[Rfam]
The family of this 214-nucleotide RNA sequence from Sulfobacillus thermosulfidooxidans is "HNH endonuclease-associated RNA and ORF (HEARO) RNA". The organism belongs to Sulfobacillus thermosulfidooxidans, within Bacteria. Rfam classes the family as a non-coding RNA gene. For this family Rfam cites "Exceptional structured noncoding RNAs revealed by bacterial metagenome analysis" (Weinberg et al., Nature, 2009). It scores 147 bits against the family's covariance model.
RNA sequence: GUUAACCACCCCGGCCUGAAGGUCGGAGCGUGUCGAAAGCUCCCGGGUUGACCAGCCUCAGUGCAUUCGGCACUACGUUAUUGGGGUCAUGACACCCCGGAAUGCUUCUCCAGUUCCGGGCUCUGUCGCUAAAGGUUAAACAGCGAGCUGGGGGUAGGGCAAGCGGUGCCUUUAGUGUAAAAAGCCUGAAUAACUUUGGCGAGGAGAGACUUCC
Dot-bracket structure: (((((((..(.((.((....)).))..)...(.......).....)))))))..(((..(((((.....)))))..((((((.((((....((..(((((((([.[[[[[[.))))))))....)).(((((((((...((.((..(((........)))..)).))))))))))).......)))).))))))...)))..]]]]]].]....